[Rfam]
RNA sequence: AGGCCCGGAGAGAAAAGCAAGGUCUGAUCCACAGCCUCCGUGGCAGCUGUUGAUCAGCCCUUGCCUCUCUUUCUCUCCA
Numbered sequence: 001a002g003g004c005c006c007g008g009a010g011a012g013a014a015a016a017g018c019a020a021g022g023u024c025u026g027a028u029c030c031a032c033a034g035c036c037u038c039c040g041u042g043g044c045a046g047c048u049g050u051u052g053a054u055c056a057g058c059c060c061u062u063g064c065c066u067c068u069c070u071u072u073c074u075c076u077c078c079a
Stems, first nucleotide, its partner, number of pairs: 008071006017064004022059001024057006032049004
RNA: mir-574 microRNA precursor family
Organism: Myotis myotis